RNA sequence: UCCCGCCCACUAAAAAGAUGCCUUUGGCAUCCUGCUCGGCUGAUCCCCGAGCUAGGUGGGCGGGUUUCU
Numbered sequence: 001u002c003c004c005g006c007c008c009a010c011u012a013a014a015a016a017g018a019u020g021c022c023u024u025u026g027g028c029a030u031c032c033u034g035c036u037c038g039g040c041u042g043a044u045c046c047c048c049g050a051g052c053u054a055g056g057u058g059g060g061c062g063g064g065u066u067u068c069u
Stems, first nucleotide, its partner, number of pairs: 002064010017031006034052005
Shown here is a 69-nucleotide sequence, a member of the family "DUF3800-IX RNA". The sequence is in the family's curated seed alignment. From the family's description: Actinobacteria, Firmicutes (1 example), Nitrospirae, Proteobacteria, Verrucomicrobia (1 example). It is annotated as a small RNA. The family's consensus secondary structure is taken from published work.